Rfam assigns this 273-nucleotide sequence from Alligator mississippiensis to the family "Metazoan signal recognition particle RNA".
Nucleotides: 273
Base pairs, nucleotide, nucleotide: 001044002043003042004023005022007020008019009018010017028041029040030039046271047270048269049268050267051266052265058260059259060258061257062256066250067249068248069247070246071245072244077243078242079241080240081239082238084236085235086234087233089231091230092229093228094227095226097224102222103221104220105219106218107217108216109212110211112210113209114208115207116206118203120201121200122199123198124197125196126195127157128156129155130154132152133151134150136148137147138146139145158164159163166193168191169190170189176185177184
Number, partner (000 for none) and nucleotide at each position: 001044g002043c003042u004023g005022g006000a007020u008019g009018u010017g011000g012000u013000g014000g015000c016000a017010c018009a019008c020007a021000c022005c023004u024000g025000u026000a027000a028041u029040c030039c031000u032000a033000u034000g035000a036000c037000u038000g039030g040029g041028a042003g043002g044001c045000g046271g047270a048269g049268g050267c051266u052265g053000g054000c055000g056000g057000a058260u059259u060258g061257c062256u063000u064000g065000a066250g067249c068248u069247c070246a071245g072244g073000a074000g075000u076000u077243c078242u079241g080240g081239g082238u083000u084236g085235u086234a087233g088000u089231g090000c091230g092229c093228u094227a095226u096000g097224c098000c099000a100000a101000u102222c103221g104220g105219g106218u107217g108216u109212c110211c111000g112210c113209a114208c115207u116206a117000a118203g119000u120201u121200c122199g123198g124197c125196a126195u127157c128156a129155a130154c131000a132152u133151g134150g135000c136148g137147a138146u139145c140000c141000c142000g143000g144000a145139g146138g147137u148136c149000a150134c151133c152132a153000g154130g155129u156128u157127g158164u159163u160000u161000a162000a163159g164158g165000a166193g167000a168191g169190g170189u171000g172000a173000g174000a175000c176185g177184g178000a179000g180000c181000a182000g183000g184177u185176c186000a187000a188000a189170a190169c191168u192000c193166c194000c195126g196125u197124g198123c199122u200121g201120a202000u203118c204000a205000g206116u207115a208114g209113u210112g211110g212109g213000a214000c215000c216108g217107c218106a219105c220104c221103u222102g223000u224097g225000a226095a227094u228093a229092g230091c231089c232000c233087c234086u235085g236084c237000c238082g239081c240080c241079u242078a243077g244072c245071c246070u247069g248068g249067g250066c251000a252000a253000c254000a255000c256062a257061g258060u259059g260058g261000g262000a263000c264000a265052c266051a267050g268049u269048c270047u271046c272000u273000u

The source organism's lineage runs through Eukaryota, Vertebrata, Gnathostomata, Alligatoridae and Alligator.
Gene Ontology terms of the family: SRP-dependent cotranslational protein targeting to membrane, signal sequence recognition and signal recognition particle, endoplasmic reticulum targeting.
About the family: The signal recognition particle (SRP) is a universally conserved ribonucleoprotein. It is involved in the co-translational targeting of proteins to membranes. The eukaryotic SRP consists of a 300-nucleotide 7S RNA and six proteins: SRPs 72, 68, 54, 19, 14, and 9. Archaeal SRP consists of a 7S RNA and homologues of the eukaryotic SRP19 and SRP54 proteins.
A reference for the family is Wild et al. (2002), "Towards the structure of the mammalian signal recognition particle", Curr Opin Struct Biol.
The base pairs follow the family's consensus structure, which is taken from published work.
By type it is a non-coding RNA gene.